[Rfam]
RNA sequence: UAAAUAAGCUAGGGGUGCCUUUUAGGCUGAGAGAUAUAUUUAAAUAUUAACCCUUGAACCUGUAUGGAUAAUGCCAGCGAAGGGAAGCAAAUCUAAAAUUAG
Numbered sequence: 001u002a003a004a005u006a007a008g009c010u011a012g013g014g015g016u017g018c019c020u021u022u023u024a025g026g027c028u029g030a031g032a033g034a035u036a037u038a039u040u041u042a043a044a045u046a047u048u049a050a051c052c053c054u055u056g057a058a059c060c061u062g063u064a065u066g067g068a069u070a071a072u073g074c075c076a077g078c079g080a081a082g083g084g085a086a087g088c089a090a091a092u093c094u095a096a097a098a099u100u101a102g
Stems, first nucleotide, its partner, number of pairs: 008088003011054004017027004034047004059083003065076003